[Rfam]
RNA sequence: UAGAUGUCAUGAUGAUUACAUAGUUCACAUGACAUAUUGUUUGAUUAAUAUGUUCGCCCCUAGCUGAGACAUCUC
Dot-bracket structure: ...(((((...........................................................)))))...
Small nucleolar RNA snR60/Z15/Z230/Z193/J17: a 75-nucleotide RNA from Bemisia tabaci.
The organism belongs to Bemisia, within Eukaryota.
The pairing is the family consensus, mapped onto this sequence.
By type it is a C/D-box small nucleolar RNA.